[Rfam]
RNA sequence: AAACAAAGGUAUCGACACUAGUCAGCGAGGGUUCGCCCACUAGUGCGAUUUUU
Numbered sequence: 001a002a003a004c005a006a007a008g009g010u011a012u013c014g015a016c017a018c019u020a021g022u023c024a025g026c027g028a029g030g031g032u033u034c035g036c037c038c039a040c041u042a043g044u045g046c047g048a049u050u051u052u053u
Stems, first nucleotide, its partner, number of pairs: 016045007025036004

The record is a 53-nucleotide RNA, which matches "ffh sRNA" in Rfam. It is one of the family's seed sequences.